RNA sequence: GGCUUUUUUCGCGGCGGAGCUCGACCGCCCACACACCAGGUAGUGGCCUACAUCGACACCUACCGUGCCCAGUUCGGGGUCGAGCCGAUCUGCACCACUUUGCAGGUCGCCCCA
Numbered sequence: 001g002g003c004u005u006u007u008u009u010c011g012c013g014g015c016g017g018a019g020c021u022c023g024a025c026c027g028c029c030c031a032c033a034c035a036c037c038a039g040g041u042a043g044u045g046g047c048c049u050a051c052a053u054c055g056a057c058a059c060c061u062a063c064c065g066u067g068c069c070c071a072g073u074u075c076g077g078g079g080u081c082g083a084g085c086c087g088a089u090c091u092g093c094a095c096c097a098c099u100u101u102g103c104a105g106g107u108c109g110c111c112c113c114a
Stems, first nucleotide, its partner, number of pairs: 013029005076113004086109002089106006
RNA: ALIL pseudoknot